Annotation:
A member of the RNA family "RgsA sRNA" from Pseudomonas sp. OIL-1, 192 nucleotides long. A search with the family's covariance model found it, with a score of 94 bits. Rfam links the family to the GO terms sRNA-mediated gene silencing, response to hydrogen peroxide and response to oxidative stress. The family's consensus secondary structure was predicted with RNAalifold. The organism belongs to Pseudomonas, within Bacteria. From the family's description: This small RNA (sRNA) was computationally identified in the genome of the opportunistic pathogen Pseudomonas aeruginosa and its expression verified by northern blot analysis. P16 sRNA appears to be conserved across several Pseudomonas species and Azotobacter vinelandii. In these species it is consistently located downstream of a predicted TatD deoxyribonuclease gene. P16 has a predicted Rho independent terminator at the 3' end but the function of P16 is unknown. Rfam classes the family as a small RNA.
RNA sequence: UAAGACGCGUGGGCAACUAUUCCGAAUCAGUUUAUAAAGUGCUGCAAAACCGCUGGAAAGUUCGGCGAUAUGAUCAAUACUCAAGGCUAACAGGACGGCAUUUCCCCCAAUGACGUUCUGUACGGUCAGGUCCAGACCUGGCCUUGCAACACUCCUAAUGGUCUUGACCCGAAUCCAUCCCCCAGGAUUCGG
Numbered sequence: 001u002a003a004g005a006c007g008c009g010u011g012g013g014c015a016a017c018u019a020u021u022c023c024g025a026a027u028c029a030g031u032u033u034a035u036a037a038a039g040u041g042c043u044g045c046a047a048a049a050c051c052g053c054u055g056g057a058a059a060g061u062u063c064g065g066c067g068a069u070a071u072g073a074u075c076a077a078u079a080c081u082c083a084a085g086g087c088u089a090a091c092a093g094g095a096c097g098g099c100a101u102u103u104c105c106c107c108c109a110a111u112g113a114c115g116u117u118c119u120g121u122a123c124g125g126u127c128a129g130g131u132c133c134a135g136a137c138c139u140g141g142c143c144u145u146g147c148a149a150c151a152c153u154c155c156u157a158a159u160g161g162u163c164u165u166g167a168c169c170c171g172a173a174u175c176c177a178u179c180c181c182c183c184a185g186g187a188u189u190c191g192g
Stems, first nucleotide, its partner, number of pairs: 041163001043161001090121003094117002097114001099112003124143005129137001169192004174187003